Rfam assigns this 143-nucleotide RNA from Paspalum vaginatum to the family "small nucleolar RNA snoR135". Pairs were carried over by alignment from the consensus structure, which was predicted with RNAalifold.
[Rfam]
RNA sequence: CCCGCAGGAUAGUGUGUAUCGCCUUUAUGCUAUCAUCUUUGCAGUUUUACCGAAAGUAUUUCCUGCUAUAUAGAUUGAAGGAAAAUGGGCAGUCGGGUUGGACUUGUAUUCUGUUUUCUCCAACAAUCAUUUUCCUCAUGUGA
Numbered sequence: 001c002c003c004g005c006a007g008g009a010u011a012g013u014g015u016g017u018a019u020c021g022c023c024u025u026u027a028u029g030c031u032a033u034c035a036u037c038u039u040u041g042c043a044g045u046u047u048u049a050c051c052g053a054a055a056g057u058a059u060u061u062c063c064u065g066c067u068a069u070a071u072a073g074a075u076u077g078a079a080g081g082a083a084a085a086u087g088g089g090c091a092g093u094c095g096g097g098u099u100g101g102a103c104u105u106g107u108a109u110u111c112u113g114u115u116u117u118c119u120c121c122a123a124c125a126a127u128c129a130u131u132u133u134c135c136u137c138a139u140g141u142g143a
Stems, first nucleotide, its partner, number of pairs: 004066005009060001015043004079136010092124002095121001
The family's RNA type in Rfam is H/ACA-box small nucleolar RNA. For this family Rfam cites "Mining small RNA sequencing data: a new approach to identify small nucleolar RNAs in Arabidopsis" (Chen and Wu, Nucleic Acids Res, 2009). NCBI's taxonomy places the organism under Eukaryota, Viridiplantae, Streptophyta, Andropogonodae, Paspalum. The match comes from Rfam's covariance-model search (96 bits).